[Rfam]
RNA: Cyanobacteria heterocyst sRNA
Nucleotides: 057
Stems, first nucleotide, its partner, number of pairs: 002018002005016003031055010
Number, partner (000 for none) and nucleotide at each position: 001000g002018g003017g004000a005016u006015g007014u008000u009000g010000u011000u012000a013000u014007g015006c016005a017003c018002u019000g020000g021000a022000u023000u024000u025000a026000g027000u028000a029000u030000g031055a032054a033053g034052g035051u036050u037049u038048g039047g040046u041000g042000g043000c044000u045000a046040a047039c048038c049037a050036a051035a052034c053033c054032u055031u056000u057000u